[Rfam]
RNA sequence: UUGCCGGCGCCGGAGACUGAAGUCCUCUAUUUAUCCACAGAGCAGAUACAGCGCGGGCGGCUGCCCCCACGCUGCCCCCACCCUGUGCCUGGCCGCUGAGCUGGAGGAACCACCUCUAAAGGUGAGAGGGGCUCUCAGUCUCCGCGCCCACGCAAUCCGCGGCCAGC
Numbered sequence: 001u002u003g004c005c006g007g008c009g010c011c012g013g014a015g016a017c018u019g020a021a022g023u024c025c026u027c028u029a030u031u032u033a034u035c036c037a038c039a040g041a042g043c044a045g046a047u048a049c050a051g052c053g054c055g056g057g058c059g060g061c062u063g064c065c066c067c068c069a070c071g072c073u074g075c076c077c078c079c080a081c082c083c084u085g086u087g088c089c090u091g092g093c094c095g096c097u098g099a100g101c102u103g104g105a106g107g108a109a110c111c112a113c114c115u116c117u118a119a120a121g122g123u124g125a126g127a128g129g130g131g132c133u134c135u136c137a138g139u140c141u142c143c144g145c146g147c148c149c150a151c152g153c154a155a156u157c158c159g160c161g162g163c164c165a166g167c
Base pairs, nucleotide, nucleotide: 002154003153004152007148011144012143013142014141015140016139017138018137019136020135024131025130026129027128028127030126031125032124033123034122035121038098039097040096042094048090051088052087053086054085055084056083059076060075061074063072102118103117104116105115106114107113